This 84-nucleotide RNA from Sedimentibacter saalensis belongs to the Rfam family "c-di-GMP-I riboswitch aptamer". A search with the family's covariance model found it, with a score of 77 bits. The family is grouped with related families in Rfam's "c-di-GMP_I riboswitch clan". The family's consensus secondary structure is taken from published work.
RNA sequence: AAAUUGAAAAGGCAAAACCAUUGAAAAGUGGUGACGCAAAGCCGUGAGUCUAAAGCUUAAUGCCAUGAUUGUCAGGUUGCCAAG
Numbered sequence: 001a002a003a004u005u006g007a008a009a010a011g012g013c014a015a016a017a018c019c020a021u022u023g024a025a026a027a028g029u030g031g032u033g034a035c036g037c038a039a040a041g042c043c044g045u046g047a048g049u050c051u052a053a054a055g056c057u058u059a060a061u062g063c064c065a066u067g068a069u070u071g072u073c074a075g076g077u078u079g080c081c082a083a084g
Stems, first nucleotide, its partner, number of pairs: 012037002017032006040078004045074003048069003055063002